[Rfam]
RNA: Vibrio regulatory RNA of OmpA
Organism: Vibrio caribbeanicus
RNA sequence: GUGGUAAGUAUGCUGAUUAUGCUUAUUGACGUAAUACGCAUACUUACCACCACUGCUUUUUAUUAACUCCUAUGUUUAUUUGUAUCCGCCCAGAGCCCCUUUGCUCUGGGCUUUUUUUA
Numbered sequence: 001g002u003g004g005u006a007a008g009u010a011u012g013c014u015g016a017u018u019a020u021g022c023u024u025a026u027u028g029a030c031g032u033a034a035u036a037c038g039c040a041u042a043c044u045u046a047c048c049a050c051c052a053c054u055g056c057u058u059u060u061u062a063u064u065a066a067c068u069c070c071u072a073u074g075u076u077u078a079u080u081u082g083u084a085u086c087c088g089c090c091c092a093g094a095g096c097c098c099c100u101u102u103g104c105u106c107u108g109g110g111c112u113u114u115u116u117u118u119a
Base pairs, nucleotide, nucleotide: 001050002049003048004047005046006045007044008043009042010041016035017034018033019032020031088111089110090109091108092107093106094105095104096103